Rfam assigns this 34-nucleotide sequence to the family "S4-Bacteroidia ribosomal protein leader".
It is annotated as a cis-regulatory leader.
It is one of the family's seed sequences.
A reference for the family is Eckert and Weinberg (2020), "Discovery of 20 novel ribosomal leader candidates in bacteria and archaea", BMC Microbiol.
[Rfam]
RNA sequence: GAUUGCAUUAAUUUCUUCUCUGUAAUCGCGGCUG
Numbered sequence: 001g002a003u004u005g006c007a008u009u010a011a012u013u014u015c016u017u018c019u020c021u022g023u024a025a026u027c028g029c030g031g032c033u034g
Base pairs, nucleotide, nucleotide: 001027002026003025004024005023006022007021